[Rfam]
RNA: c-di-GMP-I riboswitch aptamer
Organism: Litchfieldia salsa
RNA sequence: UAAACGAAAAGGCAAAUCUAUUGAAAAGUAGAGACGCAAAGCUUCAGAUCUAAGGUCAAUUUUGACUAUGAUGGCUGGGUUACCGAA
Numbered sequence: 001u002a003a004a005c006g007a008a009a010a011g012g013c014a015a016a017u018c019u020a021u022u023g024a025a026a027a028g029u030a031g032a033g034a035c036g037c038a039a040a041g042c043u044u045c046a047g048a049u050c051u052a053a054g055g056u057c058a059a060u061u062u063u064g065a066c067u068a069u070g071a072u073g074g075c076u077g078g079g080u081u082a083c084c085g086a087a
Stems, first nucleotide, its partner, number of pairs: 012037002017032006040081004045077003048072003055066004
Dot-bracket structure: ...........((...((((((....))))))...))..((((.((((((....((((....))))...)))..)))))))......